[Rfam]
RNA sequence: UAAGAUGGCGCGGGGUGUCGGAUAUCCGGCUGAGAGUUACCCGUUGAACUUGAUCUGAUUCAUAUCAGCGUAAGGACGCCUUCAAAAAAACGA
Numbered sequence: 001u002a003a004g005a006u007g008g009c010g011c012g013g014g015g016u017g018u019c020g021g022a023u024a025u026c027c028g029g030c031u032g033a034g035a036g037u038u039a040c041c042c043g044u045u046g047a048a049c050u051u052g053a054u055c056u057g058a059u060u061c062a063u064a065u066c067a068g069c070g071u072a073a074g075g076a077c078g079c080c081u082u083c084a085a086a087a088a089a090a091c092g093a
Base pairs, nucleotide, nucleotide: 007080008079009078010077011043012042013041014040017030018029019028020027021026049074050073051072052071055068056067057066058065
The record is a 93-nucleotide RNA from Legionella spiritensis, which matches "TPP riboswitch aptamer (THI element)" in Rfam.